[Rfam]
RNA sequence: AAUAAUUAAAUAAACAGCAUCAAUAUAAUGUGGAUGAUAUGGAUCCAAAGUUUCUACCGAACGACCGUAAAUUGUUUGACUAUUGAAGAGCUAUUUUCUAUU
Number, nucleotide and partner (000 for none) at each position: 001a000002a000003u000004a000005a000006u000007u000008a000009a000010a000011u000012a000013a000014a000015c000016a000017g000018c088019a000020u086021c085022a084023a083024u082025a081026u000027a000028a000029u049030g000031u047032g046033g045034a044035u043036g000037a000038u000039a000040u000041g000042g000043a035044u034045c033046c032047a031048a000049a029050g000051u000052u000053u000054c000055u000056a000057c000058c078059g077060a076061a075062c074063g073064a072065c000066c000067g000068u000069a000070a000071a000072u064073u063074g062075u061076u060077u059078g058079a000080c000081u025082a024083u023084u022085g021086a020087a000088g018089a000090g000091c000092u000093a000094u000095u000096u000097u000098c000099u000100a000101u000102u000

Rfam assigns this 102-nucleotide RNA from Sedimentibacter saalensis to the family "Purine riboswitch aptamer". The family's consensus secondary structure is taken from published work. A search with the family's covariance model found it, with a score of 83 bits.